The family of this 68-nucleotide RNA sequence is "tRNA". Gene Ontology term of the family: triplet codon-amino acid adaptor activity.
RNA sequence: ACUAUUUUGGCAGAUUAGUGCAGUAAAUUUAGAAUUUAUUUAUAUAAUUUAAUUAAUUAUAAAUAGUA
Dot-bracket structure: (((((((..(((......))).(((((.......)))))....(((((.......)))))))))))).

The family's RNA type in Rfam is transfer RNA.